A member of the RNA family "radC RNA" from Entomomonas asaccharolytica, 149 nucleotides long. Rfam 15.1 lists 500 matches to the family in 142 species. The source organism's lineage runs through Bacteria, Pseudomonadati, Gammaproteobacteria, Pseudomonadales and Entomomonas. By type it is a cis-regulatory element.
RNA sequence: AAAUAUUAGGCAUGGAUUGUUAGCGUUGCUAACAAAACCUGCCCAGUGAACCAUCGAUCUUCAAGGUUCAGUACAACGUAGUUGUAUGGUCACAUAAAGUCGAUAAAAGCGCACGGUAGCAUCGACGAUUACUAAACUGAGUAAUGUGU
Numbered sequence: 001a002a003a004u005a006u007u008a009g010g011c012a013u014g015g016a017u018u019g020u021u022a023g024c025g026u027u028g029c030u031a032a033c034a035a036a037a038c039c040u041g042c043c044c045a046g047u048g049a050a051c052c053a054u055c056g057a058u059c060u061u062c063a064a065g066g067u068u069c070a071g072u073a074c075a076a077c078g079u080a081g082u083u084g085u086a087u088g089g090u091c092a093c094a095u096a097a098a099g100u101c102g103a104u105a106a107a108a109g110c111g112c113a114c115g116g117u118a119g120c121a122u123c124g125a126c127g128a129u130u131a132c133u134a135a136a137c138u139g140a141g142u143a144a145u146g147u148g149u
Stems, first nucleotide, its partner, number of pairs: 011041002014038001019033006047070006056091004071087006121149002128145006